[Rfam]
Annotation
Shown here is a 69-nucleotide RNA, a member of the family "tRNA". Transfer RNA (tRNA) molecules are approximately 80 nucleotides in length. Their secondary structure includes four short double-helical elements and three loops (D, anti-codon, and T loops). Further hydrogen bonds mediate the characteristic L-shaped molecular structure. tRNAs have two regions of fundamental functional importance: the anti-codon, which is responsible for specific mRNA codon recognition, and the 3' end, to which the tRNAs corresponding amino acid is attached (by aminoacyl-tRNA synthetases). tRNAs cope with the degeneracy of the genetic code in two manners: having more than one tRNA (with a specific anti-codon) for a particular amino acid; and 'wobble' base-pairing, i.e. permitting non-standard base-pairing at the 3rd anti-codon position. The family's consensus secondary structure is taken from published work. It is one of the family's seed sequences.
RNA sequence: GUAAAUAUAGUUUAACCAAAACAUUAGAUUGUGAAUCUAAUAAUAGGGCCCCACAACCCCUUAUUUACC
Number, nucleotide and partner (000 for none) at each position: 001g068002u067003a066004a065005a064006u063007a062008u000009a000010g022011u021012u020013u019014a000015a000016c000017c000018a000019a013020a012021a011022c010023a000024u040025u039026a038027g037028a036029u000030u000031g000032u000033g000034a000035a000036u028037c027038u026039a025040a024041u000042a000043a000044u000045a061046g060047g059048g058049c000050c000051c000052c000053a000054c000055a000056a000057c000058c048059c047060c046061u045062u007063a006064u005065u004066u003067a002068c001069c000